Shown here is a 99-nucleotide sequence from Treponema peruense, a member of the family "Glycine riboswitch aptamer".
This family represents the bacterial glycine riboswitch.
The match comes from Rfam's covariance-model search (47 bits).
Its family is annotated with glycine biosynthetic process in the Gene Ontology.

RNA sequence: GCGUAAUUCUCUGGAGAGUUCCUGCCGAACCUGGCGGGACGCCGAAGGGUUAAGGUUAUUCCAGCCGAUAUCUCAGGCAAAGUGGACAGAAAACUUUUU
Numbered sequence: 001g002c003g004u005a006a007u008u009c010u011c012u013g014g015a016g017a018g019u020u021c022c023u024g025c026c027g028a029a030c031c032u033g034g035c036g037g038g039a040c041g042c043c044g045a046a047g048g049g050u051u052a053a054g055g056u057u058a059u060u061c062c063a064g065c066c067g068a069u070a071u072c073u074c075a076g077g078c079a080a081a082g083u084g085g086a087c088a089g090a091a092a093a094c095u096u097u098u099u
Stems, first nucleotide, its partner, number of pairs: 007093002010090004020039006041078003044074002048072003054066002